Shown here is a 157-nucleotide RNA sequence from Edwardsiella hoshinae, a member of the family "FMN riboswitch aptamer (RFN element)". The source organism's lineage runs through Bacteria, Pseudomonadati, Pseudomonadota, Gammaproteobacteria and Edwardsiella. Rfam links the family to the GO term FMN binding. It scores 111 bits against the family's covariance model. Rfam's curators write: The RFN element is a highly conserved domain that is found frequently in the 5'-untranslated regions of prokaryotic mRNAs that encode for flavin mononucleotide (FMN) biosynthesis and transport proteins. This element is a metabolite-dependent riboswitch that directly binds FMN in the absence of proteins. In Bacillus subtilis, the riboswitch most likely controls gene expression by causing premature transcription termination within the 5' untranslated region of the ribDEAHT operon and precluding access to the ribosome-binding site of ypaA mRNA.The FMN riboswitch structure, reported in present an FMN-bound six-stem junction, adopts a butterfly-like scaffold, stapled together by opposingly directed but nearly identically folded peripheral domains. Pairs were carried over by alignment from the consensus structure, which is taken from published work.

[Rfam]
RNA sequence: CUUACUUCUCAGGGCAGGGUGAAAGUCCCUACCGGCGGUAAAUCGGUACGCAGUGGCGUCACCGAAAGCCCGCGAGCGCUUGCAUUGCGAUGCAAGGUCAGCAGAUCCGGUGUGAUUCCGGGGCCGACGGUUAUAGUCCGGAUGGGAGAGAGUAACG
Numbered sequence: 001c002u003u004a005c006u007u008c009u010c011a012g013g014g015c016a017g018g019g020u021g022a023a024a025g026u027c028c029c030u031a032c033c034g035g036c037g038g039u040a041a042a043u044c045g046g047u048a049c050g051c052a053g054u055g056g057c058g059u060c061a062c063c064g065a066a067a068g069c070c071c072g073c074g075a076g077c078g079c080u081u082g083c084a085u086u087g088c089g090a091u092g093c094a095a096g097g098u099c100a101g102c103a104g105a106u107c108c109g110g111u112g113u114g115a116u117u118c119c120g121g122g123g124c125c126g127a128c129g130g131u132u133a134u135a136g137u138c139c140g141g142a143u144g145g146g147a148g149a150g151a152g153u154a155a156c157g
Stems, first nucleotide, its partner, number of pairs: 003155001006152005017029003031137002033126002035073004068124002076102002106122005128140003